The record is a 95-nucleotide RNA from Treponema denticola, which matches "TD-2 RNA" in Rfam. The family is grouped with related families in Rfam's "TD (Treponema denticola) motifs". For this family Rfam cites "Identification of 22 candidate structured RNAs in bacteria using the CMfinder comparative genomics pipeline" (Weinberg et al., Nucleic Acids Res, 2007). The organism belongs to Treponema denticola, within Bacteria. The family has 36 seed sequences and 310 matches in Rfam 15.1.

[Rfam]
RNA sequence: UUUGGCUGCCGGUGGUUUCACGCUAGCGACGUUUUGCCGUGAGGCAAAACUUGAAGCUUAAAAAAUGUACCUCUCUGUACAUUUUUUAAGCGGUA
Numbered sequence: 001u002u003u004g005g006c007u008g009c010c011g012g013u014g015g016u017u018u019c020a021c022g023c024u025a026g027c028g029a030c031g032u033u034u035u036g037c038c039g040u041g042a043g044g045c046a047a048a049a050c051u052u053g054a055a056g057c058u059u060a061a062a063a064a065a066u067g068u069a070c071c072u073c074u075c076u077g078u079a080c081a082u083u084u085u086u087u088a089a090g091c092g093g094u095a
Stems, first nucleotide, its partner, number of pairs: 001008001027053003031050008056091007064083007